M-box riboswitch aptamer (ykoK leader): a 171-nucleotide RNA from Sporomusa ovata.

[Rfam]
RNA sequence: ACAAUUCUCUGUUAGGUGAGGCUCCUGCAUAAAAAAAUGCCACUACCCGGAAACGUCGAGAGACGCCAAUGGGUUAACAGGUACUACCGAAUUAAGGUUUUACUUAAUGUGGCUGAGUAAGAAUCGAGCUCUACGUUAUGCAGUGCUAAAACUAAACGAGUAGAGGAGGUC
Numbered sequence: 001a002c003a004a005u006u007c008u009c010u011g012u013u014a015g016g017u018g019a020g021g022c023u024c025c026u027g028c029a030u031a032a033a034a035a036a037a038u039g040c041c042a043c044u045a046c047c048c049g050g051a052a053a054c055g056u057c058g059a060g061a062g063a064c065g066c067c068a069a070u071g072g073g074u075u076a077a078c079a080g081g082u083a084c085u086a087c088c089g090a091a092u093u094a095a096g097g098u099u100u101u102a103c104u105u106a107a108u109g110u111g112g113c114u115g116a117g118u119a120a121g122a123a124u125c126g127a128g129c130u131c132u133a134c135g136u137u138a139u140g141c142a143g144u145g146c147u148a149a150a151a152c153u154a155a156a157c158g159a160g161u162a163g164a165g166g167a168g169g170u171c
Stems, first nucleotide, its partner, number of pairs: 005167006011157002013095001015153003020147003025143008039113005045074005054065004080104004086098003115131003

The organism belongs to Sporomusa, within Bacteria.